Shown here is a 117-nucleotide RNA from Paractinoplanes abujensis, a member of the family "SAM (S-adenosyl methionine) riboswitch aptamer". Rfam 15.1 lists 2,360 matches to the family in 1,305 species.

[Rfam]
RNA sequence: GGUCAUGAGUGCCAGCGCGUAGCCCCGGCUUGCUGGCCGGCAACCCUUGCGUUCGCGAUGGGGUGCCCCGGGUGAGGACCAGGUCUGCGCCCGGCCGGGCGCAGGCAAGCGCGAGCC
Numbered sequence: 001g002g003u004c005a006u007g008a009g010u011g012c013c014a015g016c017g018c019g020u021a022g023c024c025c026c027g028g029c030u031u032g033c034u035g036g037c038c039g040g041c042a043a044c045c046c047u048u049g050c051g052u053u054c055g056c057g058a059u060g061g062g063g064u065g066c067c068c069c070g071g072g073u074g075a076g077g078a079c080c081a082g083g084u085c086u087g088c089g090c091c092c093g094g095c096c097g098g099g100c101g102c103a104g105g106c107a108a109g110c111g112c113g114a115g116c117c
Stems, first nucleotide, its partner, number of pairs: 001080004009038001011037006021030002039067003044063003048058001050057001083106010
Dot-bracket structure: ((((....(.((((((....((......)).)))))))(((..(((.(.(......))..))).))).........))))..((((((((((....))))))))))...........
About this RNA: The organism belongs to Paractinoplanes, within Bacteria. About the family: SAM-IV is a mRNA element that regulates gene expression via direct sensing of S-adenosylmethionine (SAM or AdoMet). SAM-IV riboswitches share conserved nucleotide positions with the previously described SAM-I riboswitches sequence analysis and molecular recognition experiments suggest that SAM-I and SAM-IV riboswitches share similar ligand binding sites, but have different scaffolds.